[Rfam]
RNA sequence: CUUCAUGCUGGGAACUCUUGUUCUGCUCCUCAUUCUUUUAGGAAUAAGGCUAUCUGUGGCAUAUAAAAUAAAGGAGUUUUCAGGGCUGCUAGCCAUGUAGUGAAGAUUAAGUGAUAGUCUAUUUCUCCUACAGAA
Numbered sequence: 001c002u003u004c005a006u007g008c009u010g011g012g013a014a015c016u017c018u019u020g021u022u023c024u025g026c027u028c029c030u031c032a033u034u035c036u037u038u039u040a041g042g043a044a045u046a047a048g049g050c051u052a053u054c055u056g057u058g059g060c061a062u063a064u065a066a067a068a069u070a071a072a073g074g075a076g077u078u079u080u081c082a083g084g085g086c087u088g089c090u091a092g093c094c095a096u097g098u099a100g101u102g103a104a105g106a107u108u109a110a111g112u113g114a115u116a117g118u119c120u121a122u123u124u125c126u127c128c129u130a131c132a133g134a135a
Stems, first nucleotide, its partner, number of pairs: 005062004022048001024046002027043003073128004085115001089111001090109003094105001096103001
RNA: Small nucleolar RNA U109